Overview:
The family of this 72-nucleotide RNA is "DUF3800-IX RNA". Rfam describes the family as follows. Actinobacteria, Firmicutes (1 example), Nitrospirae, Proteobacteria, Verrucomicrobia (1 example). It is annotated as a small RNA. The base pairs follow the family's consensus structure, which is taken from published work. The sequence is in the family's curated seed alignment.
RNA sequence: GCUUAAUAUAUCGAACAGUCACCCGCUGGUGGCGUGCUACGCUAUACGCGUAGAUAGAUAUAUUAAGCUAUU
Numbered sequence: 001g002c003u004u005a006a007u008a009u010a011u012c013g014a015a016c017a018g019u020c021a022c023c024c025g026c027u028g029g030u031g032g033c034g035u036g037c038u039a040c041g042c043u044a045u046a047c048g049c050g051u052a053g054a055u056a057g058a059u060a061u062a063u064u065a066a067g068c069u070a071u072u
Stems, first nucleotide, its partner, number of pairs: 001068007009060004018033006037053004